[Rfam]
RNA sequence: UAGGAAAGUCAGGGCCAGGAGACCCCCCACCCCGAGCCCAGGGUAACUCUCAAUGUAGGGGGGCA
Dot-bracket structure: .......(((.(((((.((.....[[[[.[)).).))))..))).............].]]]]..
Numbered sequence: 001u002a003g004g005a006a007a008g009u010c011a012g013g014g015c016c017a018g019g020a021g022a023c024c025c026c027c028c029a030c031c032c033c034g035a036g037c038c039c040a041g042g043g044u045a046a047c048u049c050u051c052a053a054u055g056u057a058g059g060g061g062g063g064c065a
Stems, first nucleotide, its partner, number of pairs: 008044003012039004016034001018032002025063004030058001
A member of the RNA family "Gag/pol translational readthrough site" from Oryctolagus cuniculus, 65 nucleotides long. NCBI's taxonomy places the organism under Eukaryota, Teleostomi, Amniota, Boreoeutheria, Oryctolagus. The family has 8 seed sequences and 3,368 matches in Rfam 15.1. A search with the family's covariance model found it, with a score of 69 bits. Rfam links the family to the GO term viral translational readthrough. On this family, see ten Dam et al., Virus Genes 1990: "RNA pseudoknots: translational frameshifting and readthrough on viral RNAs". The base pairs follow the family's consensus structure, which is taken from published work.